Eukaryotic small subunit ribosomal RNA: a 503-nucleotide part of an RNA from Cryptosporidium muris.
[Rfam]
RNA sequence: CAGUUAAAAAGCUCGUAGUUGGAUUUCUGUUGUAUAAUCUAUAAUAUUACUAAGGUAUAUAUUAUAUUAUCAACAUCCUUCCUAUUAUAUUUCUAAAUAUAUAGGAAACUUUACUUUGAGAAAAUUAGAGUGCUUAAAGCAGGCAACUGCCUUGAAUACUCCAGCAUGGAAUAAUAAGUAAGGACUUUUGUCUUUCUUAUUGGUUCUAGGACAAAAGUAAUGGUUAAUAGGGACAGUUGGGGGCAUUCGUAUUUAACAGCCAGAGGUGAAAUUCUUAGAUUUGUUAAAGACGAACUACUGCGAAAGCAUUUGCCAAGGAUGUUUUCAUUAAUCAAGAACGAAAGUUAGGGGAUCGAAGACGAUCAGAUACCGUCGUAGUCUUAACCAUAAACUAUGCCGACUAGAGAUUGGAGGUUGUUCCUUACUCCUUCAGCACCUUAUGAGAAAUCAAAGUCUUUGGGUUCUGGGGGGAGUAUGGUCGCAAGGCUGAAACUUAAAGGAAU
Number, nucleotide and partner (000 for none) at each position: 001c466002a465003g464004u000005u000006a000007a000008a000009a463010a000011g339012c000013u337014c336015g000016u000017a000018g332019u331020u330021g000022g000023a000024u000025u000026u000027c000028u000029g000030u000031u000032g000033u000034a000035u000036a000037a000038u000039c000040u000041a000042u000043a000044a000045u000046a000047u000048u000049a000050c000051u000052a000053a000054g000055g000056u000057a000058u000059a000060u000061a000062u000063u000064a000065u000066a000067u000068u000069a000070u000071c000072a000073a000074c000075a000076u000077c000078c000079u000080u000081c000082c000083u000084a000085u000086u000087a000088u000089a000090u000091u000092u000093c000094u000095a000096a000097a000098u000099a000100u000101a000102u000103a000104g000105g000106a000107a000108a000109c000110u000111u000112u000113a000114c000115u000116u000117u000118g000119a000120g000121a000122a000123a000124a000125u000126u000127a000128g000129a000130g000131u000132g000133c000134u000135u000136a000137a000138a000139g000140c000141a000142g000143g000144c000145a000146a000147c000148u000149g000150c000151c000152u000153u000154g000155a000156a000157u000158a000159c000160u000161c000162c000163a000164g000165c000166a000167u000168g000169g000170a000171a000172u000173a000174a000175u000176a000177a000178g000179u000180a000181a000182g000183g000184a000185c000186u000187u000188u000189u000190g000191u000192c000193u000194u000195u000196c000197u000198u000199a000200u000201u000202g000203g000204u000205u000206c000207u000208a000209g000210g000211a000212c000213a000214a000215a000216a000217g000218u000219a000220a000221u000222g000223g000224u000225u000226a000227a000228u000229a000230g326231g325232g324233a323234c321235a320236g000237u318238u317239g000240g000241g000242g314243g313244c312245a311246u000247u000248c292249g291250u000251a000252u288253u287254u286255a285256a284257c283258a282259g281260c000261c000262a000263g274264a273265g272266g000267u000268g000269a000270a000271a000272u265273u264274c263275u000276u000277a000278g000279a000280u000281u259282u258283g257284u256285u255286a254287a253288a252289g000290a000291c249292g248293a000294a000295c000296u000297a000298c000299u000300g307301c306302g000303a000304a000305a000306g301307c300308a000309u000310u000311u245312g244313c243314c242315a000316a000317g238318g237319a000320u235321g234322u000323u233324u232325u231326c230327a000328u000329u000330a020331a019332u018333c000334a000335a000336g014337a013338a000339c011340g000341a000342a000343a000344g385345u384346u383347a382348g381349g380350g000351g000352a000353u000354c378355g000356a000357a000358g374359a373360c372361g371362a000363u000364c000365a000366g000367a000368u000369a000370c000371c361372g360373u359374c358375g000376u000377a000378g354379u000380c349381u348382u347383a346384a345385c344386c000387a000388u000389a000390a000391a000392c000393u000394a000395u000396g462397c461398c460399g455400a454401c453402u000403a438404g437405a000406g000407a000408u433409u432410g431411g430412a429413g428414g427415u000416u000417g425418u424419u000420c000421c000422u000423u000424a418425c417426u000427c414428c413429u412430u411431c410432a409433g408434c000435a000436c000437c404438u403439u000440a000441u000442g449443a448444g000445a000446a000447a000448u443449c442450a000451a000452a000453g401454u400455c399456u000457u000458u000459g000460g398461g397462u396463u009464c003465u002466g001467g000468g495469g494470g493471g000472a000473g000474u000475a000476u000477g488478g487479u486480c485481g000482c000483a000484a000485g480486g479487c478488u477489g000490a000491a000492a000493c470494u469495u468496a000497a000498a000499g000500g000501a000502a000503u000